[Rfam]
RNA sequence: GGAAGCUGGUUUCAUGUGGUGACUUAGAUUUAUUCAUCUCUGUUUCUAGCACCAUUUGAAAUCAGUGUUCU
Numbered sequence: 001g002g003a004a005g006c007u008g009g010u011u012u013c014a015u016g017u018g019g020u021g022a023c024u025u026a027g028a029u030u031u032a033u034u035c036a037u038c039u040c041u042g043u044u045u046c047u048a049g050c051a052c053c054a055u056u057u058g059a060a061a062u063c064a065g066u067g068u069u070c071u
Base pairs, nucleotide, nucleotide: 001071002070003069004068005066006065007064008063009062010061011060012059013058014057016055017054018053019052020051021050025048026047027046028045
Annotation
A member of the RNA family "mir-29 microRNA precursor family" from Xenopus laevis, 71 nucleotides long. From the family's description: This family represents the microRNA (miRNA) precursors mir-29. The family's consensus secondary structure was predicted with PFOLD. For this family Rfam cites "microRNAs: tiny regulators with great potential" (Ambros, Cell, 2001).